Rfam assigns this 108-nucleotide RNA sequence from Rhododendron simsii to the family "Small nucleolar RNA snoR100". Lineage of the source: Eukaryota > Euphyllophyta > Ericales > Rhodoreae > Rhododendron.
RNA sequence: UAAUGAAGAAAGUAUAGUAAUGUACAUAUAAAUUAAUUUGGAUCUCAAGGCAUAUCCUCUCUGAUGUCAUUUGGCUUUGAUUUAGGGAUAUGGUUCCGCAGCAAAACA
Numbered sequence: 001u002a003a004u005g006a007a008g009a010a011a012g013u014a015u016a017g018u019a020a021u022g023u024a025c026a027u028a029u030a031a032a033u034u035a036a037u038u039u040g041g042a043u044c045u046c047a048a049g050g051c052a053u054a055u056c057c058u059c060u061c062u063g064a065u066g067u068c069a070u071u072u073g074g075c076u077u078u079g080a081u082u083u084a085g086g087g088a089u090a091u092g093g094u095u096c097c098g099c100a101g102c103a104a105a106a107c108a
Base pairs, nucleotide, nucleotide: 012025013024014023015022040091042089043088044087050081055074056073
Background
Its family is annotated with nucleolus and RNA processing in the Gene Ontology. Rfam 15.1 lists 1,851 matches to the family in 220 species. The base pairs follow the family's consensus structure, which was predicted with WAR. For this family Rfam cites "Experimental RNomics: identification of 140 candidates for small non-messenger RNAs in the plant Arabidopsis thaliana" (Marker et al., Curr Biol, 2002). The family's RNA type in Rfam is H/ACA-box small nucleolar RNA.